Shown here is a 187-nucleotide RNA sequence from Companilactobacillus farciminis, a member of the family "Listeria sRNA rli28".
RNA sequence: CUUUUCAUGGAUAAUGAAUAAUGUAAGAAGUUAAGGCGGUGGCUAGCCGAACAAUUGCGAGGUGAUGCCUAUGGAUAAAACUAAAAGAAGUGCGCGUCGCCCCGAGAAAGGGCAGCAUGAGCGUAUACCAAGCGUUAUCGUUAAUGAUUUCAUUUGCGACGUUGGUUGUAUUAAUUCUAAAGUUUAA
Numbered sequence: 001c002u003u004u005u006c007a008u009g010g011a012u013a014a015u016g017a018a019u020a021a022u023g024u025a026a027g028a029a030g031u032u033a034a035g036g037c038g039g040u041g042g043c044u045a046g047c048c049g050a051a052c053a054a055u056u057g058c059g060a061g062g063u064g065a066u067g068c069c070u071a072u073g074g075a076u077a078a079a080a081c082u083a084a085a086a087g088a089a090g091u092g093c094g095c096g097u098c099g100c101c102c103c104g105a106g107a108a109a110g111g112g113c114a115g116c117a118u119g120a121g122c123g124u125a126u127a128c129c130a131a132g133c134g135u136u137a138u139c140g141u142u143a144a145u146g147a148u149u150u151c152a153u154u155u156g157c158g159a160c161g162u163u164g165g166u167u168g169u170a171u172u173a174a175u176u177c178u179a180a181a182g183u184u185u186a187a
Stems, first nucleotide, its partner, number of pairs: 039160002042157002058104002061101005067095002119139002123135002126132001166181002
For this family Rfam cites "Muscarinic cholinergic control of vasopressin secretion from the acute hypothalamoneurohypophysial explant" (Michels et al., Neuroendocrinology, 1991). The source organism's lineage runs through Bacteria, Bacillati, Lactobacillales, Lactobacillaceae and Companilactobacillus.